[Rfam]
RNA sequence: AGCAGGCUGUGAAAUGGGAGGUUGCCGACACACGGAUACCCGUUGUCUAUGUAGUUGGGUUUUUCCACGGAGCAAGUCUAUACAAGAUUAUAGGCGA
Number, nucleotide and partner (000 for none) at each position: 001a000002g000003c000004a000005g000006g000007c000008u000009g000010u000011g000012a000013a000014a000015u067016g066017g000018g065019a064020g063021g062022u000023u000024g000025c058026c057027g056028a055029c054030a000031c000032a000033c000034g000035g000036a000037u000038a000039c000040c000041c000042g000043u000044u000045g000046u000047c000048u000049a000050u000051g000052u000053a000054g029055u028056u027057g026058g025059g000060u000061u000062u021063u020064u019065c018066c016067a015068c000069g000070g000071a000072g000073c000074a000075a000076g095077u094078c093079u092080a091081u090082a089083c000084a000085a000086g000087a000088u000089u082090a081091u080092a079093g078094g077095c076096g000097a000
S10-Clostridia ribosomal protein leader: a 97-nucleotide sequence from Mariniplasma anaerobium.
The literature on the family includes a 2020 paper in BMC Microbiol by Eckert and Weinberg, "Discovery of 20 novel ribosomal leader candidates in bacteria and archaea".
Pairs were carried over by alignment from the consensus structure, which is taken from published work.